[Rfam]
This 86-nucleotide RNA from Jaculus jaculus belongs to the Rfam family "Small nucleolar RNA SNORD105". For this family Rfam cites "Identification of 13 novel human modification guide RNAs" (Vitali et al., Nucleic Acids Res, 2003). It is annotated as a C/D-box small nucleolar RNA. U105 belongs to the C/D family of snoRNAs. It is encoded in an intron of the Suppressor of SWI4 1 homolog (Ssf-1) (Peter Pan homolog) gene. and is predicted to guide 2'O-ribose methylation of residue U799 of the small 18S rRNA subunit. The match comes from Rfam's covariance-model search (85 bits).
RNA sequence: GUUCCCAUCUCAUGAUGAACCCAUGUGCCUCUGAGCUGCCAUGACUCGGGCUUCAAAGUAAACGCUCUGAAGAGCUGGAAUGGAAA
Numbered sequence: 001g002u003u004c005c006c007a008u009c010u011c012a013u014g015a016u017g018a019a020c021c022c023a024u025g026u027g028c029c030u031c032u033g034a035g036c037u038g039c040c041a042u043g044a045c046u047c048g049g050g051c052u053u054c055a056a057a058g059u060a061a062a063c064g065c066u067c068u069g070a071a072g073a074g075c076u077g078g079a080a081u082g083g084a085a086a
Stems, first nucleotide, its partner, number of pairs: 002086002005083001007081001008079002